[Rfam]
RNA sequence: UAGUAGAUGCACCCUAAAUCAAAUUAAACCCUUAGCUUUUGGCUGAGGGUUUUUAUU
Numbered sequence: 001u002a003g004u005a006g007a008u009g010c011a012c013c014c015u016a017a018a019u020c021a022a023a024u025u026a027a028a029c030c031c032u033u034a035g036c037u038u039u040u041g042g043c044u045g046a047g048g049g050u051u052u053u054u055a056u057u
Stems, first nucleotide, its partner, number of pairs: 003012002029049009